[Rfam]
RNA sequence: CAGGCAUGCUGGAGCCCCGCCAGCGGCGCCUGGCUGAAGAGGCCUGUCACCGGACGGGGCAGAA
Numbered sequence: 001c002a003g004g005c006a007u008g009c010u011g012g013a014g015c016c017c018c019g020c021c022a023g024c025g026g027c028g029c030c031u032g033g034c035u036g037a038a039g040a041g042g043c044c045u046g047u048c049a050c051c052g053g054a055c056g057g058g059g060c061a062g063a064a
Base pairs, nucleotide, nucleotide: 014060015059016058017057018056019055024052025051026050031046032045033044035041
Dot-bracket structure: .............((((((....(((....(((.(.....)..)))...)))..))))))....

A member of the RNA family "ybhL leader" from Mesorhizobium sp. ORS 3428, 64 nucleotides long.
Gene Ontology term of the family: regulation of gene expression.
For this family Rfam cites "Evidence for a second class of S-adenosylmethionine riboswitches and other regulatory RNA motifs in alpha-proteobacteria" (Corbino et al., Genome Biol, 2005).
Taxonomically the source falls in Mesorhizobium (Bacteria, Pseudomonadati, Hyphomicrobiales, Phyllobacteriaceae).